RNA sequence: UGUGUGGUGUAGGUAGUUUCAAGUUGUUGGGCUGGAUGCUUAAGAUCACAGGAACCUGAAACUGCCUGAAUCACACC
Numbered sequence: 001u002g003u004g005u006g007g008u009g010u011a012g013g014u015a016g017u018u019u020c021a022a023g024u025u026g027u028u029g030g031g032c033u034g035g036a037u038g039c040u041u042a043a044g045a046u047c048a049c050a051g052g053a054a055c056c057u058g059a060a061a062c063u064g065c066c067u068g069a070a071u072c073a074c075a076c077c
Stems, first nucleotide, its partner, number of pairs: 003075006010068010023055003027051003031047001

A member of the RNA family "mir-196 microRNA precursor family" from Cottoperca gobio, 77 nucleotides long. Taxonomically the source falls in Cottoperca (Eukaryota, Teleostomi, Neopterygii, Notothenioidei). It scores 72 bits against the family's covariance model.